RNA sequence: AAAAAGAAGAAUGUGAACCCUCAUAUAUUUUUGGGAAUAAGGCCCAUCUGUUUCUACCCGGCGACCGGAAAUUGCCGGACUAUGAAGGGAAAUCGUAACGUU
Numbered sequence: 001a002a003a004a005a006g007a008a009g010a011a012u013g014u015g016a017a018c019c020c021u022c023a024u025a026u027a028u029u030u031u032u033g034g035g036a037a038u039a040a041g042g043c044c045c046a047u048c049u050g051u052u053u054c055u056a057c058c059c060g061g062c063g064a065c066c067g068g069a070a071a072u073u074g075c076c077g078g079a080c081u082a083u084g085a086a087g088g089g090a091a092a093u094c095g096u097a098a099c100g101u102u
Stems, first nucleotide, its partner, number of pairs: 018088002021085005032046004058078007
Dot-bracket structure: .................((.(((((......((((.......))))...........(((((((.......)))))))..))))).))..............

This 102-nucleotide RNA from Sporolactobacillus putidus belongs to the Rfam family "Purine riboswitch aptamer".
It scores 79 bits against the family's covariance model.
Taxonomically the source falls in Sporolactobacillus (Bacteria, Bacillati, Bacillota, Sporolactobacillaceae).